Shown here is a 61-nucleotide RNA from Methylocystis sp. B8, a member of the family "Fluoride riboswitch aptamer (crcB RNA motif)". Lineage of the source: Bacteria > Pseudomonadota > Alphaproteobacteria > Hyphomicrobiales > Methylocystis.
RNA sequence: CUUGUCGCUGGCGAUGGAGUUCGCCUUUAACCGCCUUUUGGCUGAUGACUCCUGUUCUGCG
Numbered sequence: 001c002u003u004g005u006c007g008c009u010g011g012c013g014a015u016g017g018a019g020u021u022c023g024c025c026u027u028u029a030a031c032c033g034c035c036u037u038u039u040g041g042c043u044g045a046u047g048a049c050u051c052c053u054g055u056u057c058u059g060c061g
Stems, first nucleotide, its partner, number of pairs: 010025004016052006033042003